This 112-nucleotide sequence from Cohaesibacter marisflavi belongs to the Rfam family "Alphaproteobacterial ar14".
RNA sequence: GGAAUUCAGGCUUUUCCUCCUCCCAAAGCCUGAUCGAUUCAAAACUACCUCCUCCCAGUUUUGAAUCUCCUAACAAAGCCCUCCGGACCUCCUCCCCCGGAGGGUUUUUGUU
Numbered sequence: 001g002g003a004a005u006u007c008a009g010g011c012u013u014u015u016c017c018u019c020c021u022c023c024c025a026a027a028g029c030c031u032g033a034u035c036g037a038u039u040c041a042a043a044a045c046u047a048c049c050u051c052c053u054c055c056c057a058g059u060u061u062u063g064a065a066u067c068u069c070c071u072a073a074c075a076a077a078g079c080c081c082u083c084c085g086g087a088c089c090u091c092c093u094c095c096c097c098c099g100g101a102g103g104g105u106u107u108u109u110g111u112u
Stems, first nucleotide, its partner, number of pairs: 007032007036067010076107011
Background: Pairs were carried over by alignment from the consensus structure. Taxonomically the source falls in Cohaesibacter (Bacteria, Alphaproteobacteria, Hyphomicrobiales, Cohaesibacteraceae).